[Rfam]
Shown here is an 81-nucleotide RNA from Merluccius polli, a member of the family "mir-31 microRNA precursor family". On this family, see Aravin et al., Dev Cell 2003: "The small RNA profile during Drosophila melanogaster development".
Nucleotides: 081
Base pairs, nucleotide, nucleotide: 005076006075007074008073009072010071011070012069013068014067015066016065017064021060023058024057025056026055027054028053029052030051031050
Number, partner (000 for none) and nucleotide at each position: 001000u002000g003000g004000g005076g006075g007074a008073a009072a010071g011070g012069u013068g014067g015066c016065a017064a018000g019000a020000u021060g022000u023058u024057g025056g026055c027054a028053u029052a030051g031050c032000u033000g034000u035000u036000g037000a038000a039000c040000u041000g042000u043000a044000c045000a046000c047000u048000c049000u050031g051030c052029u053028a054027u055026g056025c057024c058023a059000c060021c061000c062000a063000a064017u065016u066015g067014c068013c069012g070011u071010c072009u073008u074007u075006c076005u077000c078000u079000a080000c081000c